The record is a 133-nucleotide RNA sequence from Oryctolagus cuniculus, which matches "Small nucleolar RNA SNORA38" in Rfam. By type it is an H/ACA-box small nucleolar RNA. The source organism's lineage runs through Eukaryota, Chordata, Mammalia, Boreoeutheria and Oryctolagus.
[Rfam]
RNA sequence: CCCUCUUAGAAAGGGCAUGUCUGUGCUUCCCUGUCUUUGGACGUGUAAGAAUUGGAGGGAAAGAAAUGUGGACUUGGGGCAGUUCCUGGGCCAGCUUGUUCCUCCCAGGCUCAAGAUCAACCAUCCCACAUAG
Numbered sequence: 001c002c003c004u005c006u007u008a009g010a011a012a013g014g015g016c017a018u019g020u021c022u023g024u025g026c027u028u029c030c031c032u033g034u035c036u037u038u039g040g041a042c043g044u045g046u047a048a049g050a051a052u053u054g055g056a057g058g059g060a061a062a063g064a065a066a067u068g069u070g071g072a073c074u075u076g077g078g079g080c081a082g083u084u085c086c087u088g089g090g091c092c093a094g095c096u097u098g099u100u101c102c103u104c105c106c107a108g109g110c111u112c113a114a115g116a117u118c119a120a121c122c123a124u125c126c127c128a129c130a131u132a133g
Stems, first nucleotide, its partner, number of pairs: 002058005016045007025031001070126003074123001093111006
Dot-bracket structure: .(((((.........(((((((..(.....).......)))))))........)))))...........(((.(..................((((((.......))))))...........)))).......

The family has 25 seed sequences and 628 matches in Rfam 15.1.
About the family: ACA38 is a member of the H/ACA class of snoRNA that guide the sites of modification of uridines to pseudouridines.